[Rfam]
RNA sequence: GUCAACUACCCCUCCUGAAUCAGAGAUUCAGAAGGGGCUUGUAAAAGCCCAAGUUGACUAGCCUGAGUCUCUUUAUUAGGGACUACGUUCGACAUGAAAUAGACACCCUCGGAUGUAUUCGCCAGUCCGUUGCCCUGUCGUGGCACUGUAAAAGCCCUGUGAGGUAGGGGCGGUCAACCACAUUAGGAAGUCUGCUGAACAUUGACGAAGCGAGUAAAAA
Numbered sequence: 001g002u003c004a005a006c007u008a009c010c011c012c013u014c015c016u017g018a019a020u021c022a023g024a025g026a027u028u029c030a031g032a033a034g035g036g037g038c039u040u041g042u043a044a045a046a047g048c049c050c051a052a053g054u055u056g057a058c059u060a061g062c063c064u065g066a067g068u069c070u071c072u073u074u075a076u077u078a079g080g081g082a083c084u085a086c087g088u089u090c091g092a093c094a095u096g097a098a099a100u101a102g103a104c105a106c107c108c109u110c111g112g113a114u115g116u117a118u119u120c121g122c123c124a125g126u127c128c129g130u131u132g133c134c135c136u137g138u139c140g141u142g143g144c145a146c147u148g149u150a151a152a153a154g155c156c157c158u159g160u161g162a163g164g165u166a167g168g169g170g171c172g173g174u175c176a177a178c179c180a181c182a183u184u185a186g187g188a189a190g191u192c193u194g195c196u197g198a199a200c201a202u203u204g205a206c207g208a209a210g211c212g213a214g215u216a217a218a219a220a
Stems, first nucleotide, its partner, number of pairs: 001058007010037002012034002015031007038047003061206001063204001065202001066084007087200005093194002096191001103138002107132001110129005117215006140181004147176002152174001154171005